[Rfam]
Lysine riboswitch aptamer: a 191-nucleotide sequence from Listeria grayi. The family's consensus secondary structure is taken from published work. A search with the family's covariance model found it, with a score of 87 bits.
RNA sequence: AUACAGGGUAGAGGUUGCGAAAAUCACUAGUAAUUGCUGGGAAGCGGUCAAAGCCGCUUGCGAUCAGCAAGGAACAGGAUGCUCGCCGAAGUCUGAACUACUUUGAUUCGUUUGGGCUGGGUCAAUUGACGAAAGGCAAUUGGACUGCUGCUAGAAAAAGUCUGAUUCUAAGCAGGUGCGCUAUCUGACAA
Numbered sequence: 001a002u003a004c005a006g007g008g009u010a011g012a013g014g015u016u017g018c019g020a021a022a023a024u025c026a027c028u029a030g031u032a033a034u035u036g037c038u039g040g041g042a043a044g045c046g047g048u049c050a051a052a053g054c055c056g057c058u059u060g061c062g063a064u065c066a067g068c069a070a071g072g073a074a075c076a077g078g079a080u081g082c083u084c085g086c087c088g089a090a091g092u093c094u095g096a097a098c099u100a101c102u103u104u105g106a107u108u109c110g111u112u113u114g115g116g117c118u119g120g121g122u123c124a125a126u127u128g129a130c131g132a133a134a135g136g137c138a139a140u141u142g143g144a145c146u147g148c149u150g151c152u153a154g155a156a157a158a159a160g161u162c163u164g165a166u167u168c169u170a171a172g173c174a175g176g177u178g179c180g181c182u183a184u185c186u187g188a189c190a191a
Base pairs, nucleotide, nucleotide: 006186007185008184009183010182011181017086018085019084020083023080024079025078034070035069036068037067038066039065040064090118091117092116093115094114095113096112097111098110100108119146120145122143123142124141125140126139127138128137148175149174150173151172152171154169